[Rfam]
Small nucleolar RNA U6-53/MBII-28: a 114-nucleotide RNA from Albula glossodonta. Rfam links the family to the GO terms RNA processing and nucleolus. On this family, see Huttenhofer et al., EMBO J 2001: "RNomics: an experimental approach that identifies 201 candidates for novel, small, non-messenger RNAs in mouse". By type it is a C/D-box small nucleolar RNA.
RNA sequence: CUCCUAUGAUGAGCCUGCCAUGCUAAUACUGAUGCACCAGACUGGGCCUUGUGUCUGUGUGGGUGUAAGUGUGUUCAGCUCUCCUUCUCACACUGACAGUGUGCACUGAGGAGG
Numbered sequence: 001c002u003c004c005u006a007u008g009a010u011g012a013g014c015c016u017g018c019c020a021u022g023c024u025a026a027u028a029c030u031g032a033u034g035c036a037c038c039a040g041a042c043u044g045g046g047c048c049u050u051g052u053g054u055c056u057g058u059g060u061g062g063g064u065g066u067a068a069g070u071g072u073g074u075u076c077a078g079c080u081c082u083c084c085u086u087c088u089c090a091c092a093c094u095g096a097c098a099g100u101g102u103g104c105a106c107u108g109a110g111g112a113g114g
Base pairs, nucleotide, nucleotide: 001113002112003111004110042057045056046055